[Rfam]
RNA sequence: GUGCAUCAGGGAUAGGAGUGGUUAUCCUUUUUGCGACGUGGUGAUGUUGUGGGAAAAAGAUAUGAACGGAUAGCCCGUAAAGGC
Numbered sequence: 001g002u003g004c005a006u007c008a009g010g011g012a013u014a015g016g017a018g019u020g021g022u023u024a025u026c027c028u029u030u031u032u033g034c035g036a037c038g039u040g041g042u043g044a045u046g047u048u049g050u051g052g053g054a055a056a057a058a059g060a061u062a063u064g065a066a067c068g069g070a071u072a073g074c075c076c077g078u079a080a081a082g083g084c
Stems, first nucleotide, its partner, number of pairs: 009076003013072002018067002023062004029057004034052001036050003